A member of the RNA family "L17-Actino-Proteobacteria ribosomal protein leader" from Sinosporangium siamense, 58 nucleotides long.

[Rfam]
RNA sequence: AGGCCGGCGAUCACGCCGUCCUCCCGCCCGACUCCGGUACCUCAUACGGCCGGGGCGG
Numbered sequence: 001a002g003g004c005c006g007g008c009g010a011u012c013a014c015g016c017c018g019u020c021c022u023c024c025c026g027c028c029c030g031a032c033u034c035c036g037g038u039a040c041c042u043c044a045u046a047c048g049g050c051c052g053g054g055g056c057g058g
Stems, first nucleotide, its partner, number of pairs: 001022003005018005028058003032055007